RNA sequence: AGCGCACAUACGGGGAGCUCGCCGAAGCGGGCUGAGAGGGUGCUUCUUCGCACCGACCCGCGGAACCUGACAUGGGUAAUGCCAACGAAGGGAGAGAGAACAUGUCUACCA
Numbered sequence: 001a002g003c004g005c006a007c008a009u010a011c012g013g014g015g016a017g018c019u020c021g022c023c024g025a026a027g028c029g030g031g032c033u034g035a036g037a038g039g040g041u042g043c044u045u046c047u048u049c050g051c052a053c054c055g056a057c058c059c060g061c062g063g064a065a066c067c068u069g070a071c072a073u074g075g076g077u078a079a080u081g082c083c084a085a086c087g088a089a090g091g092g093a094g095a096g097a098g099a100a101c102a103u104g105u106c107u108a109c110c111a
Base pairs, nucleotide, nucleotide: 007098009096011060012059013058014057017032018031019030020029021028039054040053041052042051043050066091067090068089073084074083075082
Dot-bracket structure: ......(.(.((((..(((((......)))))......(((((......)))))..)))).....(((....(((......)))....)))....).).............